[Rfam]
RNA sequence: CCCGUGAGGCGGACGGUCUCCCCGUGAGGCGAACGGCCCAAGCAUCGCGCUCCACCCUCGUUUGGGAGCGCUUGUCAUG
Numbered sequence: 001c002c003c004g005u006g007a008g009g010c011g012g013a014c015g016g017u018c019u020c021c022c023c024g025u026g027a028g029g030c031g032a033a034c035g036g037c038c039c040a041a042g043c044a045u046c047g048c049g050c051u052c053c054a055c056c057c058u059c060g061u062u063u064g065g066g067a068g069c070g071c072u073u074g075u076c077a078u079g
Stems, first nucleotide, its partner, number of pairs: 005024002008021002047071006
The record is a 79-nucleotide sequence, which matches "chrB-a RNA" in Rfam. By type it is a cis-regulatory element. The family has 163 seed sequences and 347 matches in Rfam 15.1. The family's consensus secondary structure is taken from published work.